[Rfam]
RNA sequence: CCGCAUAUAUUUGUCCUCAAAUGAAAUUCAAUUUUGCAAAUAACUGGUGGUGGAAGCACUUACGUCGAUCGUCGUGAGCAACACCUCCUGUAAUCAUAUACUAAGGCUUGUC
Numbered sequence: 001c002c003g004c005a006u007a008u009a010u011u012u013g014u015c016c017u018c019a020a021a022u023g024a025a026a027u028u029c030a031a032u033u034u035u036g037c038a039a040a041u042a043a044c045u046g047g048u049g050g051u052g053g054a055a056g057c058a059c060u061u062a063c064g065u066c067g068a069u070c071g072u073c074g075u076g077a078g079c080a081a082c083a084c085c086u087c088c089u090g091u092a093a094u095c096a097u098a099u100a101c102u103a104a105g106g107c108u109u110g111u112c
Stems, first nucleotide, its partner, number of pairs: 036099001038097001040094002043091002046088002049085004056079002059076001061074001062072003

Source information
The family of this 112-nucleotide sequence from Salinimicrobium catena is "Bacteroidete tryptophan peptide leader RNA". The family's RNA type in Rfam is cis-regulatory leader.